[Rfam]
Overview: Plant signal recognition particle RNA: a 304-nucleotide RNA sequence from Coffea arabica. Pairs were carried over by alignment from the consensus structure, which is taken from published work. Its Rfam clan is "SRP clan".

RNA sequence: GCCGAGCCUCGUAGCGCGGGCUUGUAACUCAAGCGGGGGCAUUAGAGUGAUGGAACAUUGGUCCGACUUAGAGGGUAGGGUUGAGAGCGCUACUUACUAGCCUGCCCACUCCAAGCGGAGAGCUGGGCCGCGUAAUCUUGGCGAAGGCUGAUGUUUCACGGUCCCUAAAGAGAUGGACACUGCGCGAGGCUGGCUUAACAGAGCAGCGAAAACCACCCGCUCCUUGCAGUGGAGGGACUACAGGCUGGUGCGCUCCUGGCCCCAUCAUUGCCCAAUGGGCGGCCCAAAUUGGACCAUCACUCUU
Numbered sequence: 001g002c003c004g005a006g007c008c009u010c011g012u013a014g015c016g017c018g019g020g021c022u023u024g025u026a027a028c029u030c031a032a033g034c035g036g037g038g039g040c041a042u043u044a045g046a047g048u049g050a051u052g053g054a055a056c057a058u059u060g061g062u063c064c065g066a067c068u069u070a071g072a073g074g075g076u077a078g079g080g081u082u083g084a085g086a087g088c089g090c091u092a093c094u095u096a097c098u099a100g101c102c103u104g105c106c107c108a109c110u111c112c113a114a115g116c117g118g119a120g121a122g123c124u125g126g127g128c129c130g131c132g133u134a135a136u137c138u139u140g141g142c143g144a145a146g147g148c149u150g151a152u153g154u155u156u157c158a159c160g161g162u163c164c165c166u167a168a169a170g171a172g173a174u175g176g177a178c179a180c181u182g183c184g185c186g187a188g189g190c191u192g193g194c195u196u197a198a199c200a201g202a203g204c205a206g207c208g209a210a211a212a213c214c215a216c217c218c219g220c221u222c223c224u225u226g227c228a229g230u231g232g233a234g235g236g237a238c239u240a241c242a243g244g245c246u247g248g249u250g251c252g253c254u255c256c257u258g259g260c261c262c263c264a265u266c267a268u269u270g271c272c273c274a275a276u277g278g279g280c281g282g283c284c285c286a287a288a289u290u291g292g293a294c295c296a297u298c299a300c301u302c303u304u
Stems, first nucleotide, its partner, number of pairs: 001040003004023006028037003044303010056291002058288002061284001063282003068278003073273005078262006085255001087253003091250002097248008106236002109234005115227004120222004125164006132157001134155003138151005165170001172217001174215003181210001183208003190201003

Rfam 15.1 lists 4,988 matches to the family in 266 species.